[Rfam]
RNA sequence: AUCAUGGAGAGUUUGAUCCUGGCUCAGAACGAACGCUGGCGGCGCGUCUUAAGCAUGCAAGUCGAACGGCAAGAGGAAAGCUUGCUUUUCUCCUAGAGUGGCGGACUGGUGAGUAACACGUGGGUGACGAACCCUCCUGACAGGGAUAGCUGGUAGAAAUAUCAGAUAAUACCGGAUACGAACUCUAUAGUUAGAGUAUAGAGAGGAAAGGUGCUUUGGCACCGCAGGGGGAUCGGCUCGCGGCCUAUCAGCUAGUUGGCAGGGUAAAGGCCUGCCAAGGCGACGACGGGUAUCCGGCCUGAGAGGGUGGACGGACACAUUGGGACUGAGAUACGGCCCAGACUCCUACGGGAGGCAGCAGCUAAGAAUAUUCCGCAAUGGGCGAAAGCCUGACGGAGCGACGCCGCGUGGACGAUGAAGGCCGAAAGGUUGUAAAGUCCUUUUGAACCUGAAGAAUAAGUUUAAGAGGGAAUGCUUAAGCGGUGACAGAAAGGUUUGAAUAAGCAACGGCUAAUUACGUGCCAGCAGCCGCGGUAACACGUAAGUUGCGAGCGUUGUUCGGAAUUAUUG
Numbered sequence: 001a002u003c004a005u006g007g008a009g010a011g012u013u014u015g016a017u018c019c020u021g022g023c024u025c026a027g028a029a030c031g032a033a034c035g036c037u038g039g040c041g042g043c044g045c046g047u048c049u050u051a052a053g054c055a056u057g058c059a060a061g062u063c064g065a066a067c068g069g070c071a072a073g074a075g076g077a078a079a080g081c082u083u084g085c086u087u088u089u090c091u092c093c094u095a096g097a098g099u100g101g102c103g104g105a106c107u108g109g110u111g112a113g114u115a116a117c118a119c120g121u122g123g124g125u126g127a128c129g130a131a132c133c134c135u136c137c138u139g140a141c142a143g144g145g146a147u148a149g150c151u152g153g154u155a156g157a158a159a160u161a162u163c164a165g166a167u168a169a170u171a172c173c174g175g176a177u178a179c180g181a182a183c184u185c186u187a188u189a190g191u192u193a194g195a196g197u198a199u200a201g202a203g204a205g206g207a208a209a210g211g212u213g214c215u216u217u218g219g220c221a222c223c224g225c226a227g228g229g230g231g232a233u234c235g236g237c238u239c240g241c242g243g244c245c246u247a248u249c250a251g252c253u254a255g256u257u258g259g260c261a262g263g264g265u266a267a268a269g270g271c272c273u274g275c276c277a278a279g280g281c282g283a284c285g286a287c288g289g290g291u292a293u294c295c296g297g298c299c300u301g302a303g304a305g306g307g308u309g310g311a312c313g314g315a316c317a318c319a320u321u322g323g324g325a326c327u328g329a330g331a332u333a334c335g336g337c338c339c340a341g342a343c344u345c346c347u348a349c350g351g352g353a354g355g356c357a358g359c360a361g362c363u364a365a366g367a368a369u370a371u372u373c374c375g376c377a378a379u380g381g382g383c384g385a386a387a388g389c390c391u392g393a394c395g396g397a398g399c400g401a402c403g404c405c406g407c408g409u410g411g412a413c414g415a416u417g418a419a420g421g422c423c424g425a426a427a428g429g430u431u432g433u434a435a436a437g438u439c440c441u442u443u444u445g446a447a448c449c450u451g452a453a454g455a456a457u458a459a460g461u462u463u464a465a466g467a468g469g470g471a472a473u474g475c476u477u478a479a480g481c482g483g484u485g486a487c488a489g490a491a492a493g494g495u496u497u498g499a500a501u502a503a504g505c506a507a508c509g510g511c512u513a514a515u516u517a518c519g520u521g522c523c524a525g526c527a528g529c530c531g532c533g534g535u536a537a538c539a540c541g542u543a544a545g546u547u548g549c550g551a552g553c554g555u556u557g558u559u560c561g562g563a564a565u566u567a568u569u570g
Base pairs, nucleotide, nucleotide: 009025010024011023012022013021027560028559029558030557032556033555034554035553036552037551039407040406041405042404043403044402045400046399047365052363053362054361056360057359058358061102062101063100066099067098074091075090076089077088078087079086080085109318110317111316119242120241121240122239123238124237125236128235129234133231134230135229136228137227138226139225141175143173144172150165151164152163153162154161155160183203184202185201186200187199188198189197210223211222212221244290245289246288251281252280253279256278257277258276259275260274261273262272263271293315294314295313296312297308298307299306300305320341321340322339323338324337343354344353345352346351371397373396374395375394379392380391381390382389383388410440411439412438413437420431421430422429423428445497446496447495448494449493450492454487460481461480462479463478464477465476504549505548506547507546508545515544516543517542518541519540525532526531